[Rfam]
Rfam assigns this 600-nucleotide part of an RNA from Spironucleus salmonicida to the family "Eukaryotic small subunit ribosomal RNA". The base pairs follow the family's consensus structure, which is taken from published work. NCBI's taxonomy places the organism under Eukaryota, Metamonada, Fornicata, Hexamitidae, Spironucleus. Its family is annotated with ribosome and structural constituent of ribosome in the Gene Ontology. It is one of the family's seed sequences.

RNA sequence: UGACGGAGAGGUACCACCAGACGUGGAGUCUGCGGCUCAAUUUGACUCAACACGCAAAUCUUACUAGGCCCAGAAGCUUUGAGGAUUGACAGAUGAGUGAUCUUUCAUGAUUAAGUUGUUGGUGGUGCAUGGCCGUUCUUAGUCCGUGAUUUAAAUUGUCUGCUUUAUUGCGAUAACGAACGAGACCUCUAUCAGAUUAAUUAUCUGAGACUGCUAGUGAUGAACUAGAGGAAGGCAGAGGCAAAAACAGGUCUGUGAUGCCCUUAGAAGCCCUAGGCCGCACGCGUACUACAAUGGCAGGUUCAUCGUGUUGCUUCCCUGAAAAUGGUGGCAGUUCAUUAAAACUUGUCGUGGUUAGGCUUGAAGGUUGAAAUUAUCCUUCAUAAAUGAGGAAUGUCUAGUAAGUGUAGGUUAUGAAUCUACGCUGAUUACGUCCCUACCCCUUGUACACACCGCCCGUCGCUCCUACUGAUUGGGAAGAUCUGGUGAGUUAUUCGGACCUACAUUUCGUAUCGUUAUGUAGCAACAAUUGCGAGCCCGCUCUUCUAGAGGAAGGAGAAGUCGUAACAAGGCUGCUGUAGGGGAACCUGCAGCAGGAUC
Dot-bracket structure: (((((.((.((((..((..((((((.(((.((((((....(.((........)).).......(((((.(....(((((........((.(((.......))).))......)))))...((.((((..((((((((....((.((((((....)))...(((......)))...))).)).....((((.(((...(....)..)))..((.(((((.....))))).)).....)))).....))).)))...).))))))).....).)))))...)).)))).))).)...(((((((.....(((..((..((.(....).))..))....)))....)))))))......(....((((((..........))))))....).....))))).....((((((((.......))))))))......))...)))).))))).))..(.(..((.(.(((((.((..(..((((((.(.(((..((.(((.(...((((((..((...))..))))))...)))).))..))).).)))))))..)).)))))..).))...)..).((((((((((....))))))))))....
Numbered sequence: 001u002g003a004c005g006g007a008g009a010g011g012u013a014c015c016a017c018c019a020g021a022c023g024u025g026g027a028g029u030c031u032g033c034g035g036c037u038c039a040a041u042u043u044g045a046c047u048c049a050a051c052a053c054g055c056a057a058a059u060c061u062u063a064c065u066a067g068g069c070c071c072a073g074a075a076g077c078u079u080u081g082a083g084g085a086u087u088g089a090c091a092g093a094u095g096a097g098u099g100a101u102c103u104u105u106c107a108u109g110a111u112u113a114a115g116u117u118g119u120u121g122g123u124g125g126u127g128c129a130u131g132g133c134c135g136u137u138c139u140u141a142g143u144c145c146g147u148g149a150u151u152u153a154a155a156u157u158g159u160c161u162g163c164u165u166u167a168u169u170g171c172g173a174u175a176a177c178g179a180a181c182g183a184g185a186c187c188u189c190u191a192u193c194a195g196a197u198u199a200a201u202u203a204u205c206u207g208a209g210a211c212u213g214c215u216a217g218u219g220a221u222g223a224a225c226u227a228g229a230g231g232a233a234g235g236c237a238g239a240g241g242c243a244a245a246a247a248c249a250g251g252u253c254u255g256u257g258a259u260g261c262c263c264u265u266a267g268a269a270g271c272c273c274u275a276g277g278c279c280g281c282a283c284g285c286g287u288a289c290u291a292c293a294a295u296g297g298c299a300g301g302u303u304c305a306u307c308g309u310g311u312u313g314c315u316u317c318c319c320u321g322a323a324a325a326u327g328g329u330g331g332c333a334g335u336u337c338a339u340u341a342a343a344a345c346u347u348g349u350c351g352u353g354g355u356u357a358g359g360c361u362u363g364a365a366g367g368u369u370g371a372a373a374u375u376a377u378c379c380u381u382c383a384u385a386a387a388u389g390a391g392g393a394a395u396g397u398c399u400a401g402u403a404a405g406u407g408u409a410g411g412u413u414a415u416g417a418a419u420c421u422a423c424g425c426u427g428a429u430u431a432c433g434u435c436c437c438u439a440c441c442c443c444u445u446g447u448a449c450a451c452a453c454c455g456c457c458c459g460u461c462g463c464u465c466c467u468a469c470u471g472a473u474u475g476g477g478a479a480g481a482u483c484u485g486g487u488g489a490g491u492u493a494u495u496c497g498g499a500c501c502u503a504c505a506u507u508u509c510g511u512a513u514c515g516u517u518a519u520g521u522a523g524c525a526a527c528a529a530u531u532g533c534g535a536g537c538c539c540g541c542u543c544u545u546c547u548a549g550a551g552g553a554a555g556g557a558g559a560a561g562u563c564g565u566a567a568c569a570a571g572g573c574u575g576c577u578g579u580a581g582g583g584g585a586a587c588c589u590g591c592a593g594c595a596g597g598a599u600c
Stems, first nucleotide, its partner, number of pairs: 001450002003447003007444002010441004016434002020398005025292001027290003031286004035281002041056001043054002064276005070270001075117005088106002091103003121264002124262004130258001131256001132252003135248003142181002145178003148157003161172003187240004192208003198203001211231002214228005296350007308339003313332002317328002320325001357388001362383006404426008453571001455568001458564002461561001463558005469552002473548001476547006483540001485538003490533002493530003497527001501523006509515002573596010